[Rfam]
RNA: MIR2617 microRNA precursor family
Organism: Medicago truncatula
RNA sequence: UGUGACAUGCCCGUUUGGGAUUUACUGAUCUGAUGUUGAAUUAUUAUUUAUUAAAUUGAUUUUGGGUAACGGGGUGUUACA
Numbered sequence: 001u002g003u004g005a006c007a008u009g010c011c012c013g014u015u016u017g018g019g020a021u022u023u024a025c026u027g028a029u030c031u032g033a034u035g036u037u038g039a040a041u042u043a044u045u046a047u048u049u050a051u052u053a054a055a056u057u058g059a060u061u062u063u064g065g066g067u068a069a070c071g072g073g074g075u076g077u078u079a080c081a
Base pairs, nucleotide, nucleotide: 001081002080003079004078005077006076007075008074010073011072012071013070014069015068